[Rfam]
Rfam assigns this 89-nucleotide RNA from Anaeromyxobacter dehalogenans to the family "tRNA". Pairs were carried over by alignment from the consensus structure, which is taken from published work. Rfam's curators write: Transfer RNA (tRNA) molecules are approximately 80 nucleotides in length.
RNA sequence: GGAAAGGUGGCCGAGAGGCCGAAGGCGCUGGUUUGCUAAACCAGUAUACGGGGUGACCUGUAUCGAGGGUUCGAAUCCCUCCCUUUCCG
Numbered sequence: 001g002g003a004a005a006g007g008u009g010g011c012c013g014a015g016a017g018g019c020c021g022a023a024g025g026c027g028c029u030g031g032u033u034u035g036c037u038a039a040a041c042c043a044g045u046a047u048a049c050g051g052g053g054u055g056a057c058c059u060g061u062a063u064c065g066a067g068g069g070u071u072c073g074a075a076u077c078c079c080u081c082c083c084u085u086u087c088c089g
Stems, first nucleotide, its partner, number of pairs: 001088007010026003028044005065081005